This 130-nucleotide sequence from Zizania palustris belongs to the Rfam family "Small nucleolar RNA snoR111". The base pairs follow the family's consensus structure, which was predicted with WAR. For this family Rfam cites "Experimental RNomics: identification of 140 candidates for small non-messenger RNAs in the plant Arabidopsis thaliana" (Marker et al., Curr Biol, 2002). Lineage of the source: Eukaryota > Streptophytina > Spermatophyta > Magnoliopsida > Zizania. The match comes from Rfam's covariance-model search (48 bits).

[Rfam]
RNA sequence: UUCUUAAGUUGGUGGCACCAAAAUCGCCAUGGUGUCAUCUUCUUUGCAAGAAGGGGAUAGAUCGACGCGUCAAGAAAUCGUUUCUGUUGCCAUGACUCCCGUAGGCAAUACGAUUGUUGCUUGCGCACAG
Numbered sequence: 001u002u003c004u005u006a007a008g009u010u011g012g013u014g015g016c017a018c019c020a021a022a023a024u025c026g027c028c029a030u031g032g033u034g035u036c037a038u039c040u041u042c043u044u045u046g047c048a049a050g051a052a053g054g055g056g057a058u059a060g061a062u063c064g065a066c067g068c069g070u071c072a073a074g075a076a077a078u079c080g081u082u083u084c085u086g087u088u089g090c091c092a093u094g095a096c097u098c099c100c101g102u103a104g105g106c107a108a109u110a111c112g113a114u115u116g117u118u119g120c121u122u123g124c125g126c127a128c129a130g
Base pairs, nucleotide, nucleotide: 006044007043008042011039014036015035016034017033018032019031069126070125072122073121074120077114078113079112080111086109087108088107089106090105091104093101094100